Rfam assigns this 82-nucleotide RNA sequence from Trichormus variabilis to the family "tRNA". It scores 57 bits against the family's covariance model. Pairs were carried over by alignment from the consensus structure, which is taken from published work. It is annotated as a transfer RNA. Rfam 15.1 lists 5,335,975 matches to the family in 14,413 species. Transfer RNA (tRNA) molecules are approximately 80 nucleotides in length.
RNA sequence: GGGCGGGUGGCGGAAUUGGUAGACGCACCGCACUCAAAAUGCGGCACCGAAAGGUAUAGGAGUUCGAUUCUCCUCCUGCCCA
Numbered sequence: 001g002g003g004c005g006g007g008u009g010g011c012g013g014a015a016u017u018g019g020u021a022g023a024c025g026c027a028c029c030g031c032a033c034u035c036a037a038a039a040u041g042c043g044g045c046a047c048c049g050a051a052a053g054g055u056a057u058a059g060g061a062g063u064u065c066g067a068u069u070c071u072c073c074u075c076c077u078g079c080c081c082a
Base pairs, nucleotide, nucleotide: 001081002080003079004078005077006076007075010026011025012024028044029043030042031041032040058074059073060072061071062070